[Rfam]
RNA sequence: AUAGACGAAAACGUGUUACCUCAUAUAUCCUCGAGAAUAUGGCUCGAGAGUCUCUACCGGACCGCCGUAAAGGGUCUGACUAUGAAGGUGGUCUUUCUGCUU
Numbered sequence: 001a002u003a004g005a006c007g008a009a010a011a012c013g014u015g016u017u018a019c020c021u022c023a024u025a026u027a028u029c030c031u032c033g034a035g036a037a038u039a040u041g042g043c044u045c046g047a048g049a050g051u052c053u054c055u056a057c058c059g060g061a062c063c064g065c066c067g068u069a070a071a072g073g074g075u076c077u078g079a080c081u082a083u084g085a086a087g088g089u090g091g092u093c094u095u096u097c098u099g100c101u102u
Base pairs, nucleotide, nucleotide: 019087021085022084023083024082025081030048031047032046033045034044035043058078059077060076061075062074063073
The record is a 102-nucleotide RNA sequence from Paenalkalicoccus suaedae, which matches "Purine riboswitch aptamer" in Rfam.
Pairs were carried over by alignment from the consensus structure, which is taken from published work.
A search with the family's covariance model found it, with a score of 78 bits.
Lineage of the source: Bacteria > Bacillati > Bacillota > Caryophanales > Paenalkalicoccus.
Riboswitches are metabolite binding domains within certain messenger RNAs that serve as precision sensors for their corresponding targets. Allosteric rearrangement of mRNA structure is mediated by ligand binding, and this results in modulation of gene expression. A class of riboswitches that selectively recognises guanine and becomes saturated at concentrations as low as 5 nM. In Bacillus subtilis, this mRNA motif is located on at least five separate transcriptional units that together encode 17 genes that are mostly involved in purine transport and purine nucleotide biosynthesis. It has also been shown that some members of this family are specific for adenine instead.
Gene Ontology term of the family: purine nucleobase biosynthetic process.